Fluoride riboswitch aptamer (crcB RNA motif): a 60-nucleotide RNA from Clostridium kluyveri. NCBI's taxonomy places the organism under Bacteria, Bacillota, Clostridia, Eubacteriales, Clostridium kluyveri.
RNA sequence: AAAUAAUAAGGUGAUGGAGUUCACCAUAACCGCAGAAAUGCUUAUGACUCCUACAAAUAA
Numbered sequence: 001a002a003a004u005a006a007u008a009a010g011g012u013g014a015u016g017g018a019g020u021u022c023a024c025c026a027u028a029a030c031c032g033c034a035g036a037a038a039u040g041c042u043u044a045u046g047a048c049u050c051c052u053a054c055a056a057a058u059a060a
Stems, first nucleotide, its partner, number of pairs: 010025004016051006032041003